[Rfam]
RNA sequence: UAUAUUUUUUUCGAUAUAAAACACUCAUGUCGAUAAAAAAAAUGGCUUGAAUCCUAU
Number, nucleotide and partner (000 for none) at each position: 001u000002a000003u000004a000005u000006u000007u000008u000009u000010u000011u033012c032013g031014a030015u029016a028017u027018a000019a000020a000021a000022c000023a000024c000025u000026c000027a017028u016029g015030u014031c013032g012033a011034u000035a000036a000037a000038a000039a000040a000041a000042a000043u000044g000045g000046c000047u000048u000049g000050a000051a000052u000053c000054c000055u000056a000057u000